A member of the RNA family "MIR5565 microRNA precursor family" from Sorghum bicolor, 113 nucleotides long. The match comes from Rfam's covariance-model search (91 bits). Gene Ontology terms of the family: RISC complex and miRNA-mediated post-transcriptional gene silencing.

RNA sequence: GUUGUCGUAUUCACAUCAAUUCAUAUGUGUUGAGGUGGAUUGGAGUGGAAUUUGAACUAAAUUCCAUUCCAAUCCACACUAACACACAUGGAUGGAUUAAAGUGAAUAUGACA
Numbered sequence: 001g002u003u004g005u006c007g008u009a010u011u012c013a014c015a016u017c018a019a020u021u022c023a024u025a026u027g028u029g030u031u032g033a034g035g036u037g038g039a040u041u042g043g044a045g046u047g048g049a050a051u052u053u054g055a056a057c058u059a060a061a062u063u064c065c066a067u068u069c070c071a072a073u074c075c076a077c078a079c080u081a082a083c084a085c086a087c088a089u090g091g092a093u094g095g096a097u098u099a100a101a102g103u104g105a106a107u108a109u110g111a112c113a
Base pairs, nucleotide, nucleotide: 004112005111006110007109008108009107010106011105012104013103014102016096017095019093020092021091022090023089024088026086027085028084029083030082031081032080035077036076037075038074039073040072041071042070043069045067046066047065